[Rfam]
RNA sequence: AAGAAUUUAGCUAAACAACAACUUUCUAAUUGACAUUGAUUUCUCCUCUUAUGCCUGGGUGUUCGCACCGAGGUUUUU
Numbered sequence: 001a002a003g004a005a006u007u008u009a010g011c012u013a014a015a016c017a018a019c020a021a022c023u024u025u026c027u028a029a030u031u032g033a034c035a036u037u038g039a040u041u042u043c044u045c046c047u048c049u050u051a052u053g054c055c056u057g058g059g060u061g062u063u064c065g066c067a068c069c070g071a072g073g074u075u076u077u078u
Stems, first nucleotide, its partner, number of pairs: 053074004058069003
RNA: Photosynthesis regulatory RNA1
Organism: Xenococcus sp. PCC 7305